RNA: c-di-GMP-I riboswitch aptamer
RNA sequence: UACUGAUACUAGCACACCUACUGAAAAGUAGGGUCGCAAAACUAUGGGUCUAAGGGGAUUUUUCCUAUGAUUGCCAAGUAGCCAAA
Numbered sequence: 001u002a003c004u005g006a007u008a009c010u011a012g013c014a015c016a017c018c019u020a021c022u023g024a025a026a027a028g029u030a031g032g033g034u035c036g037c038a039a040a041a042c043u044a045u046g047g048g049u050c051u052a053a054g055g056g057g058a059u060u061u062u063u064c065c066u067a068u069g070a071u072u073g074c075c076a077a078g079u080a081g082c083c084a085a086a
Stems, first nucleotide, its partner, number of pairs: 012037002017032006041079003045076003048071003055065004